[Rfam]
RNA: Streptomyces sRNA scr5239
RNA sequence: UCUCCGCUCUCCCCGCACAGGAGAGCGGACCGAGGUACCCGGCGCUCUCUGCCCUGACUGCGCCGGUGCCUCCAGUGGCCGGAGGCACCGCACACCGCCGGCCAGGCCGGCCUGUUCCGAAAAGGCAGGCCCGCAGCUCCGGGCUGCGGUGCCGGACGGGCUGAGGGUCCCGUCCCGGCGC
Numbered sequence: 001u002c003u004c005c006g007c008u009c010u011c012c013c014c015g016c017a018c019a020g021g022a023g024a025g026c027g028g029a030c031c032g033a034g035g036u037a038c039c040c041g042g043c044g045c046u047c048u049c050u051g052c053c054c055u056g057a058c059u060g061c062g063c064c065g066g067u068g069c070c071u072c073c074a075g076u077g078g079c080c081g082g083a084g085g086c087a088c089c090g091c092a093c094a095c096c097g098c099c100g101g102c103c104a105g106g107c108c109g110g111c112c113u114g115u116u117c118c119g120a121a122a123a124g125g126c127a128g129g130c131c132c133g134c135a136g137c138u139c140c141g142g143g144c145u146g147c148g149g150u151g152c153c154g155g156a157c158g159g160g161c162u163g164a165g166g167g168u169c170c171c172g173u174c175c176c177g178g179c180g181c
Base pairs, nucleotide, nucleotide: 003029004028005027006026008024009023010022011021012020032072033071034070035069039066040065041064042063044061045060046057047056077103078102079101080100081099104145154175155174156173157172158171159170160169